[Rfam]
RNA: mir-3492 microRNA precursor family
RNA sequence: AGCCUUCUGAAUCCGAGCCGAAAUUUCGUCAAACACCAAACCAUCAGGACUGAUGAGACUUCCAAGAUAAGUGAAACG
Numbered sequence: 001a002g003c004c005u006u007c008u009g010a011a012u013c014c015g016a017g018c019c020g021a022a023a024u025u026u027c028g029u030c031a032a033a034c035a036c037c038a039a040a041c042c043a044u045c046a047g048g049a050c051u052g053a054u055g056a057g058a059c060u061u062c063c064a065a066g067a068u069a070a071g072u073g074a075a076a077c078g
Stems, first nucleotide, its partner, number of pairs: 002077001005074002008071001011068003017062001020061002024058007